The record is a 351-nucleotide RNA sequence from Helicocarpus griseus, which matches "A. fumigatus sRNA Afu_309" in Rfam. The literature on the family includes a 2008 paper in Nucleic Acids Res by Jochl et al., "Small ncRNA transcriptome analysis from Aspergillus fumigatus suggests a novel mechanism for regulation of protein synthesis". The family's RNA type in Rfam is small RNA. The base pairs follow the family's consensus structure, which was predicted with WAR. Lineage of the source: Eukaryota > Ascomycota > Eurotiomycetes > Ajellomycetaceae > Helicocarpus griseus.

RNA sequence: AUCACAACAAAACAACAGAUCUGUGUCCAGCAGUCCUGAGCCACUGAGUCACGUACUCCGGUGUGUUUCGGUUGCAUUGCUGGACAGCUCGACGAUUCAUGGAGCCAUCACUCUAAAUGGUGUCAAUUUCCGGUCGACAGGUCUCAGAGCGAAGCUCAGCGGCGCGGAUUACUACACUCUGCCUUGAGCUCCCUUCCACUCCGCAAGGGGCUGGUUGGUGAACUCGGUGAGAUGGCCGGUGUUCUGCUGAGGGCGUCAUAUUCCACCUCCCUUUACCGAUUUCGUCCCUUUCGGGGGAUGUUUGGCCGUCGGCUGAUGAGGUUAGGGAAAAACCAUGACUUGCCAACAUAC
Numbered sequence: 001a002u003c004a005c006a007a008c009a010a011a012a013c014a015a016c017a018g019a020u021c022u023g024u025g026u027c028c029a030g031c032a033g034u035c036c037u038g039a040g041c042c043a044c045u046g047a048g049u050c051a052c053g054u055a056c057u058c059c060g061g062u063g064u065g066u067u068u069c070g071g072u073u074g075c076a077u078u079g080c081u082g083g084a085c086a087g088c089u090c091g092a093c094g095a096u097u098c099a100u101g102g103a104g105c106c107a108u109c110a111c112u113c114u115a116a117a118u119g120g121u122g123u124c125a126a127u128u129u130c131c132g133g134u135c136g137a138c139a140g141g142u143c144u145c146a147g148a149g150c151g152a153a154g155c156u157c158a159g160c161g162g163c164g165c166g167g168a169u170u171a172c173u174a175c176a177c178u179c180u181g182c183c184u185u186g187a188g189c190u191c192c193c194u195u196c197c198a199c200u201c202c203g204c205a206a207g208g209g210g211c212u213g214g215u216u217g218g219u220g221a222a223c224u225c226g227g228u229g230a231g232a233u234g235g236c237c238g239g240u241g242u243u244c245u246g247c248u249g250a251g252g253g254c255g256u257c258a259u260a261u262u263c264c265a266c267c268u269c270c271c272u273u274u275a276c277c278g279a280u281u282u283c284g285u286c287c288c289u290u291u292c293g294g295g296g297g298a299u300g301u302u303u304g305g306c307c308g309u310c311g312g313c314u315g316a317u318g319a320g321g322u323u324a325g326g327g328a329a330a331a332a333c334c335a336u337g338a339c340u341u342g343c344c345a346a347c348a349u350a351c
Stems, first nucleotide, its partner, number of pairs: 017144008025085006032078003035074001036071005041065001043062004048057001093136005100125003104121003157246002162243001163241002165238003180229004186225003190221002192218002252344003255339005268328005275322003304314004